[Rfam]
RNA sequence: CCGGGGACGACCCCGGCGUGAUGUGGAACCUCCGGGACGGCCCGG
Numbered sequence: 001c002c003g004g005g006g007a008c009g010a011c012c013c014c015g016g017c018g019u020g021a022u023g024u025g026g027a028a029c030c031u032c033c034g035g036g037a038c039g040g041c042c043c044g045g
Stems, first nucleotide, its partner, number of pairs: 001016006032045005
A member of the RNA family "Guanidine-II riboswitch aptamer (mini-ykkC)" from Paracoccus sp. SM22M-07, 45 nucleotides long. NCBI's taxonomy places the organism under Bacteria, Pseudomonadota, Alphaproteobacteria, Paracoccaceae, Paracoccus. Simpler in structure and has fewer highly conserved nucleotide positions than the ykkC-yxkD leader. Despite this each of its two stem-loop structures directly bind free guanidine. Therefore, mini-ykkC RNA motif represents a distinct class of guanidine-sensing RNAs.